[Rfam]
RNA sequence: UACACAAAGCAUAUGAUGAGAAAGCACAAAACUGACUCUGUGUGAAGUCCAUUCAAUCCAAUACUGAGCUUUGUGUC
Dot-bracket structure: .(((((((((.........................................................))))))))).
Numbered sequence: 001u002a003c004a005c006a007a008a009g010c011a012u013a014u015g016a017u018g019a020g021a022a023a024g025c026a027c028a029a030a031a032c033u034g035a036c037u038c039u040g041u042g043u044g045a046a047g048u049c050c051a052u053u054c055a056a057u058c059c060a061a062u063a064c065u066g067a068g069c070u071u072u073g074u075g076u077c
Stems, first nucleotide, its partner, number of pairs: 002076009

This 77-nucleotide RNA sequence from Eurystomus gularis belongs to the Rfam family "Small nucleolar RNA SNORD69".
Rfam links the family to the GO terms nucleolus and RNA processing.
A reference for the family is Huttenhofer et al. (2001), "RNomics: an experimental approach that identifies 201 candidates for novel, small, non-messenger RNAs in mouse", EMBO J.
NCBI's taxonomy places the organism under Eukaryota, Bilateria, Gnathostomata, Coraciidae, Eurystomus.